The family of this 43-nucleotide RNA sequence is "L31-Actinobacteria ribosomal protein leader". It is annotated as a cis-regulatory leader.
RNA sequence: CCGGUUCCGGUUCACGUCCUCGACUGAGGGCGACCCGGCGACC
Number, nucleotide and partner (000 for none) at each position: 001c000002c000003g043004g042005u041006u000007c038008c037009g036010g035011u000012u000013c000014a000015c032016g031017u030018c029019c028020u027021c026022g000023a000024c000025u000026g021027a020028g019029g018030g017031c016032g015033a000034c000035c010036c009037g008038g007039c000040g000041a005042c004043c003
Clan: Ribosomal Protein L31 Leader clan.